[Rfam]
Shown here is a 75-nucleotide RNA sequence from Sulfurovum sp. AR, a member of the family "c-di-GMP-I riboswitch aptamer". GEMM was predicted in a large-scale screen for bacterial structured RNA regulatory elements. The organism belongs to Sulfurovum, within Bacteria. A search with the family's covariance model found it, with a score of 42 bits.
RNA sequence: CUUUAAUAAAGCCAAACUAUCUGUAGAGAUAGGACGGAAAGCAAUGGGGCUCAAGUAGAUCGCCAAGCCACUCAG
Numbered sequence: 001c002u003u004u005a006a007u008a009a010a011g012c013c014a015a016a017c018u019a020u021c022u023g024u025a026g027a028g029a030u031a032g033g034a035c036g037g038a039a040a041g042c043a044a045u046g047g048g049g050c051u052c053a054a055g056u057a058g059a060u061c062g063c064c065a066a067g068c069c070a071c072u073c074a075g
Stems, first nucleotide, its partner, number of pairs: 012037002017032006045074003048069003055063002